[Rfam]
Rfam assigns this 97-nucleotide RNA from Sedonavirus tusconh to the family "PhotoRC-II RNA". Taxonomically the source falls in Sedonavirus tusconh (Viruses, Pantevenvirales, Kyanoviridae, Sedonavirus). Pairs were carried over by alignment from the consensus structure, which is taken from published work.
RNA sequence: UAACGCUUCUUUACACGCCUCACCAAGACUAAACAGCGUGUCUAAAAAACAGUCUUUAAUACCUGUAUCUUAGGGUGAUACAGGAAUAGUAAAACCA
Numbered sequence: 001u002a003a004c005g006c007u008u009c010u011u012u013a014c015a016c017g018c019c020u021c022a023c024c025a026a027g028a029c030u031a032a033a034c035a036g037c038g039u040g041u042c043u044a045a046a047a048a049a050c051a052g053u054c055u056u057u058a059a060u061a062c063c064u065g066u067a068u069c070u071u072a073g074g075g076u077g078a079u080a081c082a083g084g085a086a087u088a089g090u091a092a093a094a095c096c097a
Base pairs, nucleotide, nucleotide: 014040015039016038017037018036025056026055027054028053029052062084063083064082065081066080067079068078